[Rfam]
RNA sequence: UUCUUAUCAAGAGAGAUGGAGGGAUCGGCCCGAUGAAAUCUCAGCAACCAGCUGCAUAGCAGUCAGGUGCUAAUUCCCCCGGUGAGCCGGAAGAUAAGAA
Numbered sequence: 001u002u003c004u005u006a007u008c009a010a011g012a013g014a015g016a017u018g019g020a021g022g023g024a025u026c027g028g029c030c031c032g033a034u035g036a037a038a039u040c041u042c043a044g045c046a047a048c049c050a051g052c053u054g055c056a057u058a059g060c061a062g063u064c065a066g067g068u069g070c071u072a073a074u075u076c077c078c079c080c081g082g083u084g085a086g087c088c089g090g091a092a093g094a095u096a097a098g099a100a
Base pairs, nucleotide, nucleotide: 001100002099003098004097005096006095007094008093013042014041015040016039017038021031022030023029027077028076043071044070045069046068048067049066051063052062053061075092080089081088082087
RNA: SAM riboswitch aptamer (S box leader)
Organism: Salsuginibacillus halophilus